[Rfam]
RNA: Small nucleolar RNA U2-19
RNA sequence: GGUCAAUGAUGAGACUAGCCAAAUCUGAGCAUCAGAAGACCGUCAGUCUAUCUGAUGCAUGAUCACUAGUUCUGAGA
Numbered sequence: 001g002g003u004c005a006a007u008g009a010u011g012a013g014a015c016u017a018g019c020c021a022a023a024u025c026u027g028a029g030c031a032u033c034a035g036a037a038g039a040c041c042g043u044c045a046g047u048c049u050a051u052c053u054g055a056u057g058c059a060u061g062a063u064c065a066c067u068a069g070u071u072c073u074g075a076g077a
Stems, first nucleotide, its partner, number of pairs: 029058005037049004